Shown here is a 163-nucleotide sequence from Kosmotoga olearia, a member of the family "Group II catalytic intron D1-D4-3". The family has 406 seed sequences and 4,274 matches in Rfam 15.1. Rfam's curators write: Group II introns are found in rRNA, tRNA and mRNA of organelles in fungi, plants and protists, and also in mRNA in bacteria. The literature on the family includes a 2001 paper in Trends Genet by Bonen and Vogel, "The ins and outs of group II introns". It is one of the family's seed sequences. Gene Ontology term of the family: Group II intron splicing.
RNA sequence: UCACUGGUAACGGUGAAUCUGAAGGAAGCCUAAGGCAAAAUCCGGAACUGAACGAAAGUGAACCAGUGUUGGCCGGUAGAGUGGGUAACCUUGCCGAGAAUGGGUAAGCCCGAGCUCCAACUCUACAGGUUUGGAUGGCAGGAUUCGGAAGAAAGCUGUAUGU
Numbered sequence: 001u002c003a004c005u006g007g008u009a010a011c012g013g014u015g016a017a018u019c020u021g022a023a024g025g026a027a028g029c030c031u032a033a034g035g036c037a038a039a040a041u042c043c044g045g046a047a048c049u050g051a052a053c054g055a056a057a058g059u060g061a062a063c064c065a066g067u068g069u070u071g072g073c074c075g076g077u078a079g080a081g082u083g084g085g086u087a088a089c090c091u092u093g094c095c096g097a098g099a100a101u102g103g104g105u106a107a108g109c110c111c112g113a114g115c116u117c118c119a120a121c122u123c124u125a126c127a128g129g130u131u132u133g134g135a136u137g138g139c140a141g142g143a144u145u146c147g148g149a150a151g152a153a154a155g156c157u158g159u160a161u162g163u
Base pairs, nucleotide, nucleotide: 001016002015003014004013005012006011028163029162031160032159035156036155041149042148043147044146045145048141049140050139063138064137065136067134072130073129074128076126077125078124079123080122081121082120083111084110085109086108089104090103091102